[Rfam]
RNA sequence: GUUUGCCUGUGUGUGGGAGGUGUUCAGCACCAAGGACAGGUUUGCCUGUGUGUGGGAGGUGUUCAGCACCACGGACAGGUUUGCCUGUGU
Number, nucleotide and partner (000 for none) at each position: 001g000002u000003u000004u000005g080006c079007c078008u077009g076010u075011g000012u000013g000014u000015g000016g000017g000018a000019g070020g069021u068022g067023u066024u065025c000026a063027g062028c061029a060030c059031c058032a000033a000034g051035g000036a049037c048038a047039g046040g045041u000042u000043u000044g000045c040046c039047u038048g037049u036050g000051u034052g000053u000054g000055g000056g000057a000058g031059g030060u029061g028062u027063u026064c000065a024066g023067c022068a021069c020070c019071a000072c000073g000074g000075a010076c009077a008078g007079g006080u005081u000082u000083g000084c000085c000086u000087g000088u000089g000090u000
This 90-nucleotide RNA sequence from Branchiostoma belcheri belongs to the Rfam family "mir-2060 microRNA precursor family". Its family is annotated with RISC complex and miRNA-mediated post-transcriptional gene silencing in the Gene Ontology. The source organism's lineage runs through Eukaryota, Eumetazoa, Bilateria, Chordata and Branchiostoma.